RNA sequence: UGGAGGGAUACGGCUGUGCGCAUCCAGCUCAUGCCCGAAGAAUGUUUUCGAAUGGUCUAGGGUUAAUUAUGCUGGUUUCGUUUACACUUGGGGCUGGCGUUAAAGUUGGAGCUACUAUGCAUUUUGACAUCACAUGUGUGGUGGCGUGGCAUUUUUUCUCCACGGUCUUGACGUCAGAAUAUUUGAGAACUAUUCGUGGUUUUCAGUUCCCUAAGAAUGCUGUAUUUCUCUGUCCCGUCUUGAAACACGG
Numbered sequence: 001u002g003g004a005g006g007g008a009u010a011c012g013g014c015u016g017u018g019c020g021c022a023u024c025c026a027g028c029u030c031a032u033g034c035c036c037g038a039a040g041a042a043u044g045u046u047u048u049c050g051a052a053u054g055g056u057c058u059a060g061g062g063u064u065a066a067u068u069a070u071g072c073u074g075g076u077u078u079c080g081u082u083u084a085c086a087c088u089u090g091g092g093g094c095u096g097g098c099g100u101u102a103a104a105g106u107u108g109g110a111g112c113u114a115c116u117a118u119g120c121a122u123u124u125u126g127a128c129a130u131c132a133c134a135u136g137u138g139u140g141g142u143g144g145c146g147u148g149g150c151a152u153u154u155u156u157u158c159u160c161c162a163c164g165g166u167c168u169u170g171a172c173g174u175c176a177g178a179a180u181a182u183u184u185g186a187g188a189a190c191u192a193u194u195c196g197u198g199g200u201u202u203u204c205a206g207u208u209c210c211c212u213a214a215g216a217a218u219g220c221u222g223u224a225u226u227u228c229u230c231u232g233u234c235c236c237g238u239c240u241u242g243a244a245a246c247a248c249g250g
Stems, first nucleotide, its partner, number of pairs: 001232012017084001020079001022077001024075005088214006235250004